[Rfam]
RNA sequence: CCUCAUAGCAGUGUUCUGGAAACCUACGUGAGGGACAAACAUUCAGACCACAGCAGGUGUGUUCUGGAAUCCUAUGUGAGGGA
Numbered sequence: 001c002c003u004c005a006u007a008g009c010a011g012u013g014u015u016c017u018g019g020a021a022a023c024c025u026a027c028g029u030g031a032g033g034g035a036c037a038a039a040c041a042u043u044c045a046g047a048c049c050a051c052a053g054c055a056g057g058u059g060u061g062u063u064c065u066g067g068a069a070u071c072c073u074a075u076g077u078g079a080g081g082g083a
Base pairs, nucleotide, nucleotide: 001081002080003079004078005077006076007075010073011072013070014069015068016067017066018065019064020063021062024059027056028054029053033049034048
RNA: mir-1299 microRNA precursor family
Organism: Pongo pygmaeus